[Rfam]
RNA sequence: AGUAGUGUAGCUCAGUAGAAGAGCGCUGAAUUCAUAACUCAGAGGACGGUAGAUCAAAACUACCCACUGCUA
Numbered sequence: 001a002g003u004a005g006u007g008u009a010g011c012u013c014a015g016u017a018g019a020a021g022a023g024c025g026c027u028g029a030a031u032u033c034a035u036a037a038c039u040c041a042g043a044g045g046a047c048g049g050u051a052g053a054u055c056a057a058a059a060c061u062a063c064c065c066a067c068u069g070c071u072a
Stems, first nucleotide, its partner, number of pairs: 001071007010024004026042004048064005
tRNA: a 72-nucleotide sequence from Rotaria sordida. It scores 56 bits against the family's covariance model. The family's consensus secondary structure is taken from published work. Rfam classes the family as a transfer RNA. Clan: tRNA clan.